[Rfam]
RNA sequence: UGCGACACCGAUCAAAGGGGUAGUUCUCCUCCUAGGAGUUACUUUACCAUAUUUUGAAUCC
Dot-bracket structure: ................(((((((((((.......)))))))))))................
Numbered sequence: 001u002g003c004g005a006c007a008c009c010g011a012u013c014a015a016a017g018g019g020g021u022a023g024u025u026c027u028c029c030u031c032c033u034a035g036g037a038g039u040u041a042c043u044u045u046a047c048c049a050u051a052u053u054u055u056g057a058a059u060c061c
Stems, first nucleotide, its partner, number of pairs: 017045011